[Rfam]
The family of this 109-nucleotide RNA sequence from Solanum lycopersicum is "MIR8024 microRNA precursor family".

RNA sequence: UUAGAGGAUUUGAAUACUUCAACUUGUAUACUUGGAGGAUUUGAGUAAUAAACUCGAAGAAUAUAAAGACUUCAAUUUGCAUACUUGAUCUAAUUUAAAGACUUCAAUU
Numbered sequence: 001u002u003a004g005a006g007g008a009u010u011u012g013a014a015u016a017c018u019u020c021a022a023c024u025u026g027u028a029u030a031c032u033u034g035g036a037g038g039a040u041u042u043g044a045g046u047a048a049u050a051a052a053c054u055c056g057a058a059g060a061a062u063a064u065a066a067a068g069a070c071u072u073c074a075a076u077u078u079g080c081a082u083a084c085u086u087g088a089u090c091u092a093a094u095u096u097a098a099a100g101a102c103u104u105c106a107a108u109u
Base pairs, nucleotide, nucleotide: 001107002106004104005103006102009099010098011097012096013095014094019088020087021086025081026080027079028078032075033074034073035072036071037070